Notes: Nuclear RNase P: a 342-nucleotide RNA sequence from Drosophila mojavensis. The family's RNA type in Rfam is ribozyme. The family is grouped with related families in Rfam's "RNaseP clan". A reference for the family is Xiao et al. (2002), "Eukaryotic Ribonuclease P: A Plurality of Ribonucleoprotein Enzymes", Annu Rev Biochem. The sequence is in the family's curated seed alignment. Lineage of the source: Eukaryota > Cyclorrhapha > Schizophora > Drosophilinae > mojavensis species complex.

RNA sequence: UCAGUUACAAUCUAGCAUCUGGGGCACACACAACGAGUAUCUGAUUACUCUUAUGAUUGCCCCGGGAAGGUCUGAGAUUUGGUCAAAGCUCCCUUGUUGCCGUAACAACGCUCAAAAGCUGAAAGGUGAUUGUGUGUCGUGGAGCUUCAUUUCCUAGCAGGAAACUUGUGUAAUCACAAGGCGAAAGUACCAGAAAUGCUGCAGCAUGGCUGUUGCCGCAUAACCUGCCGCCGGCCAUGUUGCAUUGAAAGCUUUCGUGGCCAGCAAUUUUAGUGCGAUGUGCUUGCUGCAAACCUCAACUCUGAGGUGCGUAGAACUCAAUUCAGACUAAUCUGUGACUGA
Numbered sequence: 001u002c003a004g005u006u007a008c009a010a011u012c013u014a015g016c017a018u019c020u021g022g023g024g025c026a027c028a029c030a031c032a033a034c035g036a037g038u039a040u041c042u043g044a045u046u047a048c049u050c051u052u053a054u055g056a057u058u059g060c061c062c063c064g065g066g067a068a069g070g071u072c073u074g075a076g077a078u079u080u081g082g083u084c085a086a087a088g089c090u091c092c093c094u095u096g097u098u099g100c101c102g103u104a105a106c107a108a109c110g111c112u113c114a115a116a117a118g119c120u121g122a123a124a125g126g127u128g129a130u131u132g133u134g135u136g137u138c139g140u141g142g143a144g145c146u147u148c149a150u151u152u153c154c155u156a157g158c159a160g161g162a163a164a165c166u167u168g169u170g171u172a173a174u175c176a177c178a179a180g181g182c183g184a185a186a187g188u189a190c191c192a193g194a195a196a197u198g199c200u201g202c203a204g205c206a207u208g209g210c211u212g213u214u215g216c217c218g219c220a221u222a223a224c225c226u227g228c229c230g231c232c233g234g235c236c237a238u239g240u241u242g243c244a245u246u247g248a249a250a251g252c253u254u255u256c257g258u259g260g261c262c263a264g265c266a267a268u269u270u271u272a273g274u275g276c277g278a279u280g281u282g283c284u285u286g287c288u289g290c291a292a293a294c295c296u297c298a299a300c301u302c303u304g305a306g307g308u309g310c311g312u313a314g315a316a317c318u319c320a321a322u323u324c325a326g327a328c329u330a331a332u333c334u335g336u337g338a339c340u341g342a
Stems, first nucleotide, its partner, number of pairs: 001342004007336003012286001014284005021063005035050005072326005081262004150164005165180006181258007201243012287314004293308005